The family of this 194-nucleotide RNA from Lupinus albus is "MIR159 microRNA precursor family". A search with the family's covariance model found it, with a score of 107 bits. The base pairs follow the family's consensus structure, which was predicted with WAR. Taxonomically the source falls in Lupinus (Eukaryota, Mesangiospermae, eudicotyledons, Pentapetalae).
[Rfam]
RNA sequence: AACAGUAAAAGGGAGCUCCCUUCAGUCCAAGUACGGAUAAGAAAAGGAAGAAAUCUAGCUCCUGCAUCAUUCACACAUUCACAAUAGCAUAUCAUGAUGUUUGAUCUAUUGUGUUUGAAUGAAUGAGUCAGCAGCUAAUUCAAACUUUUUACUCAUCCAUGAGUGGGCUGAAGGAAGCUCUCUUACACUAUUCU
Dot-bracket structure: ............(((((.((..(((((((......(......................((.(((...((((....(........................................)....))))...))).))......................)......)))))))..)).)))))..............
Numbered sequence: 001a002a003c004a005g006u007a008a009a010a011g012g013g014a015g016c017u018c019c020c021u022u023c024a025g026u027c028c029a030a031g032u033a034c035g036g037a038u039a040a041g042a043a044a045a046g047g048a049a050g051a052a053a054u055c056u057a058g059c060u061c062c063u064g065c066a067u068c069a070u071u072c073a074c075a076c077a078u079u080c081a082c083a084a085u086a087g088c089a090u091a092u093c094a095u096g097a098u099g100u101u102u103g104a105u106c107u108a109u110u111g112u113g114u115u116u117g118a119a120u121g122a123a124u125g126a127g128u129c130a131g132c133a134g135c136u137a138a139u140u141c142a143a144a145c146u147u148u149u150u151a152c153u154c155a156u157c158c159a160u161g162a163g164u165g166g167g168c169u170g171a172a173g174g175a176a177g178c179u180c181u182c183u184u185a186c187a188c189u190a191u192u193c194u
Stems, first nucleotide, its partner, number of pairs: 013180005019174002023170007036157001059134002062131003068125004076117001